[Rfam]
RNA sequence: UGGCGAUGAAGCAGUGGACUGGUUCGGUAUCAGCCGAUUGUGGAGCCAGACCGUGGGUUGAGCGAUAACCACAAGCCGAAUAGAUUCACCUGAAUCGAACGAAAACGCAAAAU
Numbered sequence: 001u002g003g004c005g006a007u008g009a010a011g012c013a014g015u016g017g018a019c020u021g022g023u024u025c026g027g028u029a030u031c032a033g034c035c036g037a038u039u040g041u042g043g044a045g046c047c048a049g050a051c052c053g054u055g056g057g058u059u060g061a062g063c064g065a066u067a068a069c070c071a072c073a074a075g076c077c078g079a080a081u082a083g084a085u086u087c088a089c090c091u092g093a094a095u096c097g098a099a100c101g102a103a104a105a106c107g108c109a110a111a112a113u
Stems, first nucleotide, its partner, number of pairs: 001048004011041005017035001019033003024079004062108003083096004
RNA: drum RNA